RNA sequence: UAUGAUCAAAUGAUGAAUUAUUUCGGAUGUAAACACAGACCUGUUCUGAAUUGCGCAAAACCGUGUGGAUAUUUCCGUUGCCUUCCUUCUGAAUAGAUCAU
Numbered sequence: 001u002a003u004g005a006u007c008a009a010a011u012g013a014u015g016a017a018u019u020a021u022u023u024c025g026g027a028u029g030u031a032a033a034c035a036c037a038g039a040c041c042u043g044u045u046c047u048g049a050a051u052u053g054c055g056c057a058a059a060a061c062c063g064u065g066u067g068g069a070u071a072u073u074u075c076c077g078u079u080g081c082c083u084u085c086c087u088u089c090u091g092a093a094u095a096g097a098u099c100a101u
Base pairs, nucleotide, nucleotide: 003100004099005098024077025076026075027074
RNA: Small nucleolar RNA Z13/snr52